[Rfam]
RNA sequence: ACUCUUGGCUAUUUGGUUUCUGAACUUGUAUGUAUAUAUAUAUAUAUACAUACAAGUUCAGAAACCAAAUAGCCAAGAGU
Numbered sequence: 001a002c003u004c005u006u007g008g009c010u011a012u013u014u015g016g017u018u019u020c021u022g023a024a025c026u027u028g029u030a031u032g033u034a035u036a037u038a039u040a041u042a043u044a045u046a047u048a049c050a051u052a053c054a055a056g057u058u059c060a061g062a063a064a065c066c067a068a069a070u071a072g073c074c075a076a077g078a079g080u
Stems, first nucleotide, its partner, number of pairs: 001080005007074020029052006
Shown here is an 80-nucleotide RNA sequence from Cyprinus carpio, a member of the family "mir-9/mir-79 microRNA precursor family". Its family is annotated with RISC complex and miRNA-mediated post-transcriptional gene silencing in the Gene Ontology. On this family, see Lagos-Quintana et al., Science 2001: "Identification of novel genes coding for small expressed RNAs". Rfam 15.1 lists 5,647 matches to the family in 934 species.